[Rfam]
Shown here is a 58-nucleotide RNA sequence from Actinacidiphila bryophytorum, a member of the family "msiK RNA". The family's RNA type in Rfam is cis-regulatory element.

Nucleotides: 058
Base pairs, nucleotide, nucleotide: 009050010049011048012047013046014045015044026043027042028041029040030039031038
Number, partner (000 for none) and nucleotide at each position: 001000g002000a003000a004000c005000u006000g007000c008000u009050u010049c011048c012047u013046u014045u015044a016000c017000u018000c019000g020000g021000a022000u023000c024000g025000u026043c027042c028041g029040g030039c031038a032000c033000g034000u035000u036000c037000c038031u039030g040029c041028c042027g043026g044015u045014g046013a047012a048011g049010g050009g051000a052000c053000u054000g055000c056000g057000u058000a
A search with the family's covariance model found it, with a score of 50 bits. The source organism's lineage runs through Bacteria, Bacillati, Actinomycetes, Streptomycetaceae and Actinacidiphila.